[Rfam]
RNA sequence: GGCGGUCUGCGCUUCCCGGCAGGAGAGACAUUUCCCCGGGGCCUUAUUGAUCCCUAGGGAGCUGUCCCUGACCAGGCCCGUGGGUCUGGUCACACGGCGCCCACCUACUUUGUAGGUUCCCGGGAUCGACUUCUCCACCGGUUGUCGUGGAUCGCCA
Dot-bracket structure: .(((((((((((..(.(((.............((((.((((((.............(((.(((((....(((((((((....)))))))))..))))).)))............)))))).))))............))))..).))))))))))..
RNA: 6S / SsrS RNA